[Rfam]
The record is a 300-nucleotide sequence from Betacoronavirus ratti, which matches "Betacoronavirus 5'UTR" in Rfam.
Its Rfam clan is "Coronavirus 5' UTR".
Pairs were carried over by alignment from the consensus structure.
Rfam describes the family as follows. The first 150 to 200 nucleotides within the 5' UTR of betacoronaviruses are highly structured and shown to be conserved on a structure level among betacoronaviruses.
Gene Ontology term of the family: viral RNA genome replication.

RNA sequence: GAUAAAGUGUGAAUCGCUUCCGUAGCAUCGCACCCUCGAUCUCUUGUUAGAUCUAAUCUAAUCUAAACUUUAUAAAAACACUAGGUCCCUGCUAGCCUAUGCCUGAGGGUUUAGGCGUUGCAUACUAGUGUCUUAGGAAUUUGACUGAUAACACUUCCCUGCUAACGGCGUGUUGCACUCUCAGUCUAAGCCUCCCACCCAUAGGAGGUAUCAUGGCUAAGCGAGUCAACAAAUACGGCCUCACGCUAAAAUGGGCCCCAGAAUUUCCGUGGAUGUUUGAGGACACAGAGGAGAAGUUGG
Number, nucleotide and partner (000 for none) at each position: 001g000002a000003u000004a000005a000006a000007g033008u032009g031010u030011g029012a000013a028014u027015c000016g000017c000018u000019u000020c000021c000022g000023u000024a000025g000026c000027a014028u013029c011030g010031c009032a008033c007034c000035c000036u000037c000038g053039a052040u051041c050042u049043c000044u000045u000046g000047u000048u000049a042050g041051a040052u039053c038054u000055a000056a000057u000058c000059u000060a000061a000062u000063c000064u000065a000066a000067a000068c000069u000070u000071u000072a000073u000074a000075a000076a000077a000078a000079c000080a000081c000082u128083a000084g126085g125086u124087c000088c000089c000090u000091g000092c000093u000094a000095g116096c115097c114098u113099a112100u000101g110102c109103c108104u000105g000106a000107g000108g103109g102110u101111u000112u099113a098114g097115g096116c095117g000118u000119u000120g000121c000122a000123u000124a086125c085126u084127a000128g082129u000130g000131u000132c000133u000134u000135a000136g000137g000138a000139a000140u000141u000142u000143g000144a000145c000146u000147g000148a000149u000150a000151a000152c000153a000154c000155u000156u000157c000158c000159c000160u000161g000162c000163u000164a000165a000166c000167g000168g000169c000170g000171u000172g186173u000174u184175g000176c000177a000178c000179u000180c000181u000182c000183a000184g174185u000186c172187u000188a000189a000190g000191c000192c000193u000194c000195c000196c000197a000198c216199c215200c000201a000202u000203a214204g000205g212206a000207g000208g000209u000210a000211u000212c205213a000214u203215g199216g198217c000218u000219a000220a000221g000222c000223g000224a000225g000226u000227c000228a000229a000230c000231a000232a000233a000234u260235a000236c000237g257238g256239c255240c254241u000242c253243a252244c000245g000246c000247u000248a000249a000250a000251a000252u243253g242254g240255g239256c238257c237258c000259c000260a234261g000262a000263a000264u000265u000266u000267c000268c000269g000270u000271g000272g000273a000274u000275g000276u000277u000278u000279g000280a000281g000282g000283a000284c000285a000286c000287a000288g000289a000290g000291g000292a000293g000294a000295a000296g000297u000298u000299g000300g000